[Rfam]
RNA sequence: GGUCAUGAGCGCCAGCGUCAAGCCCCGGCUUGCUGGCCGGCAACCCUCCUCGCGACGGGGUGCCCCGGGUGAUGACCUGGCUGCACCGUAGGGGUGUGGCAAGGCGAGCC
Numbered sequence: 001g002g003u004c005a006u007g008a009g010c011g012c013c014a015g016c017g018u019c020a021a022g023c024c025c026c027g028g029c030u031u032g033c034u035g036g037c038c039g040g041c042a043a044c045c046c047u048c049c050u051c052g053c054g055a056c057g058g059g060g061u062g063c064c065c066c067g068g069g070u071g072a073u074g075a076c077c078u079g080g081c082u083g084c085a086c087c088g089u090a091g092g093g094g095u096g097u098g099g100c101a102a103g104g105c106g107a108g109c110c
Stems, first nucleotide, its partner, number of pairs: 001077004009038001011037006021030002039064003044060003049054001080100008